This 73-nucleotide RNA from Polaribacter sp. KT25b belongs to the Rfam family "Flavo-1 RNA". Taxonomically the source falls in Polaribacter (Bacteria, Pseudomonadati, Flavobacteriia, Flavobacteriales).
[Rfam]
RNA sequence: UUUGCGUUAGCGAUUGAAGUGGCAUCCUUUUUGCUUUUUCUGCAAAAAGAUACAACGGAAAGCGCGACCUUUU
Number, nucleotide and partner (000 for none) at each position: 001u000002u000003u000004g000005c000006g000007u000008u000009a000010g065011c064012g063013a000014u061015u060016g000017a000018a000019g056020u055021g000022g000023c000024a051025u050026c049027c000028u000029u000030u046031u045032u044033g043034c042035u000036u000037u000038u000039u000040c000041u000042g034043c033044a032045a031046a030047a000048a000049g026050a025051u024052a000053c000054a000055a020056c019057g000058g000059a000060a015061a014062g000063c012064g011065c010066g000067a000068c000069c000070u000071u000072u000073u000
A search with the family's covariance model found it, with a score of 59 bits.
It is annotated as a small RNA.